About this RNA
The family of this 132-nucleotide sequence from Chara braunii is "U11 spliceosomal RNA". For this family Rfam cites "Additional low-abundance human small nuclear ribonucleoproteins: U11, U12, etc" (Montzka and Steitz, Proc Natl Acad Sci U S A, 1988). By type it is a spliceosomal small nuclear RNA. The source organism's lineage runs through Eukaryota, Viridiplantae, Charales, Characeae and Chara. The family is grouped with related families in Rfam's "U1 clan".
RNA sequence: AAAAAUGGCCUGUUGGCUAUAUAUGCCAUGCAUGGUUUAAGCCGUGCACUGCAUGAACAUCAAGACAUAUGGCUGGCUGGCAGAAUUUCUGAACCCUCCAAUAGAGGGUUGGCACGCUUUGCCGACCCUUAA
Numbered sequence: 001a002a003a004a005a006u007g008g009c010c011u012g013u014u015g016g017c018u019a020u021a022u023a024u025g026c027c028a029u030g031c032a033u034g035g036u037u038u039a040a041g042c043c044g045u046g047c048a049c050u051g052c053a054u055g056a057a058c059a060u061c062a063a064g065a066c067a068u069a070u071g072g073c074u075g076g077c078u079g080g081c082a083g084a085a086u087u088u089c090u091g092a093a094c095c096c097u098c099c100a101a102u103a104g105a106g107g108g109u110u111g112g113c114a115c116g117c118u119u120u121g122c123c124g125a126c127c128c129u130u131a132a
Base pairs, nucleotide, nucleotide: 008081009080010079012077014028015027016026017025029048030047031046032045033044034043035042036041049072050071051070053068054067055066102131103130104129107127108126109125110124111123112122113121114120